[Rfam]
RNA sequence: UCCCAAUGAAGAAGAUAACCUGAUUGAUCGGAAGUGCCGUAUGAUACUCCAAAAACAGCAGUGACUCG
Numbered sequence: 001u002c003c004c005a006a007u008g009a010a011g012a013a014g015a016u017a018a019c020c021u022g023a024u025u026g027a028u029c030g031g032a033a034g035u036g037c038c039g040u041a042u043g044a045u046a047c048u049c050c051a052a053a054a055a056c057a058g059c060a061g062u063g064a065c066u067c068g
Stems, first nucleotide, its partner, number of pairs: 014062001031050001033048004
Dot-bracket structure: .............(................(.((((........)))).)...........)......
Shown here is a 68-nucleotide RNA sequence from Cajanus cajan, a member of the family "Small nucleolar RNA U49". Clan: SNORD49 clan. Rfam 15.1 lists 340 matches to the family in 152 species. Rfam links the family to the GO terms nucleolus and RNA processing. For this family Rfam cites "Multiple snoRNA gene clusters from Arabidopsis" (Brown et al., RNA, 2001). It is annotated as a C/D-box small nucleolar RNA. NCBI's taxonomy places the organism under Eukaryota, Embryophyta, Spermatophyta, fabids, Cajanus. The family's consensus secondary structure was predicted with CMfinder.